RNA sequence: UUCAACCUCCAUAAAAGGAGUAGUCCCCCAACCCGGGGCAACUUUCCCAUAUUCUGAAGUC
Numbered sequence: 001u002u003c004a005a006c007c008u009c010c011a012u013a014a015a016a017g018g019a020g021u022a023g024u025c026c027c028c029c030a031a032c033c034c035g036g037g038g039c040a041a042c043u044u045u046c047c048c049a050u051a052u053u054c055u056g057a058a059g060u061c
Stems, first nucleotide, its partner, number of pairs: 017045005023039005
Dot-bracket structure: ................(((((.(((((.......))))).)))))................

Source information: This 61-nucleotide sequence from Hordeum vulgare belongs to the Rfam family "Plastid-psbN 5UTR RNA". Rfam describes the family as follows. Plastid psbN is a non-coding RNA (ncRNA) recognised in plastids. It was reported as a conserved 11 stem-loop in the prime untranslated region (5UTR) of psbN genes. It has been reported that the motif is retained in a subset of mature transcripts in barley, which can suggests a possible role in transcript alternative 5 prime processing. NCBI's taxonomy places the organism under Eukaryota, Euphyllophyta, Petrosaviidae, Pooideae, Hordeum vulgare. It is annotated as a cis-regulatory element. On this family, see Richter et al., Plant Commun 2023: "Retrograde signaling in plants: A critical review focusing on the GUN pathway and beyond". The match comes from Rfam's covariance-model search (66 bits).